A member of the RNA family "Bacterial large signal recognition particle RNA" from a bacterium, 263 nucleotides long. From the family's description: The signal recognition particle (SRP) is a universally conserved ribonucleoprotein involved in the co-translational targeting of proteins to membranes. Rfam classes the family as a non-coding RNA gene. A search with the family's covariance model found it, with a score of 148 bits. For this family Rfam cites "Prediction of signal recognition particle RNA genes" (Regalia et al., Nucleic Acids Res, 2002).
RNA sequence: UCGCGCUAAGCGGGGAGGCUGCGGUGCCCUGUAUCUGCAAUCCGCAUAGCAGAGUUGAAUUCCUUUGCCCCGGCCCGCGUUUGUGGGGUUGCGCGCAAAAGGGGACGUUGAUAAGUGGGCCUCGUGCGACGGCGCGUUGUGAACCCCGCCAGGGCGGAAGCAGCAACGGUAAGCAAUUAGUGUCGUGCGCCGCGGGAUACCUGCUUUGAGUUUUUCUUUUGCGUUUCCGCCUGGAAGCGUGUGGUCAAAGCGAGGGUGCGCGA
Numbered sequence: 001u002c003g004c005g006c007u008a009a010g011c012g013g014g015g016a017g018g019c020u021g022c023g024g025u026g027c028c029c030u031g032u033a034u035c036u037g038c039a040a041u042c043c044g045c046a047u048a049g050c051a052g053a054g055u056u057g058a059a060u061u062c063c064u065u066u067g068c069c070c071c072g073g074c075c076c077g078c079g080u081u082u083g084u085g086g087g088g089u090u091g092c093g094c095g096c097a098a099a100a101g102g103g104g105a106c107g108u109u110g111a112u113a114a115g116u117g118g119g120c121c122u123c124g125u126g127c128g129a130c131g132g133c134g135c136g137u138u139g140u141g142a143a144c145c146c147c148g149c150c151a152g153g154g155c156g157g158a159a160g161c162a163g164c165a166a167c168g169g170u171a172a173g174c175a176a177u178u179a180g181u182g183u184c185g186u187g188c189g190c191c192g193c194g195g196g197a198u199a200c201c202u203g204c205u206u207u208g209a210g211u212u213u214u215u216c217u218u219u220u221g222c223g224u225u226u227c228c229g230c231c232u233g234g235a236a237g238c239g240u241g242u243g244g245u246c247a248a249a250g251c252g253a254g255g256g257u258g259c260g261c262g263a
Base pairs, nucleotide, nucleotide: 001263002262003261004260005259006258009056010055011054012030013029014028015027017025019023034053035052036051037050038049062256063255064254065253066252067251068250072246073245074244075243078239079238080237081236082235084233085232086231087230091226094223095222096221097220098219099218102216103215104212105211106210113206114205115204116203117202118201119200121196122195123194124193125192126191127187128186130185131184132183133182134181136177137176138175139174140173146169147168148167154161155160